[Rfam]
The family of this 207-nucleotide RNA from Pseudomonas sp. ABC1 is "PhrS". Pairs were carried over by alignment from the consensus structure, which was predicted with CMfinder.

RNA sequence: AUCGGAUUCAGGGACAUUUGGACGGAGGUCGAUCAUGUUUCUCGAUAAUGUGGUACUCGCUGGGGUCGUCACUGUCGGAAUGAUGGUCGUCUUCCUGUUUGGUUUCGGUUAUUUCAUCUGGCGGGAUUCUCAGAAGAAAAAGUGAUAAAUCCCGCCCGAUCAGGGGCACGCAAGGCAUUUAGGCGACUUCGGUCGCCUUUUUUUUUA
Numbered sequence: 001a002u003c004g005g006a007u008u009c010a011g012g013g014a015c016a017u018u019u020g021g022a023c024g025g026a027g028g029u030c031g032a033u034c035a036u037g038u039u040u041c042u043c044g045a046u047a048a049u050g051u052g053g054u055a056c057u058c059g060c061u062g063g064g065g066u067c068g069u070c071a072c073u074g075u076c077g078g079a080a081u082g083a084u085g086g087u088c089g090u091c092u093u094c095c096u097g098u099u100u101g102g103u104u105u106c107g108g109u110u111a112u113u114u115c116a117u118c119u120g121g122c123g124g125g126a127u128u129c130u131c132a133g134a135a136g137a138a139a140a141a142g143u144g145a146u147a148a149a150u151c152c153c154g155c156c157c158g159a160u161c162a163g164g165g166g167c168a169c170g171c172a173a174g175g176c177a178u179u180u181a182g183g184c185g186a187c188u189u190c191g192g193u194c195g196c197c198u199u200u201u202u203u204u205u206u207a
Base pairs, nucleotide, nucleotide: 009101010100011099012098050060051059052058077088078087166176167175169174181198182197183196184195185194186193187192
Gene Ontology term of the family: quorum sensing.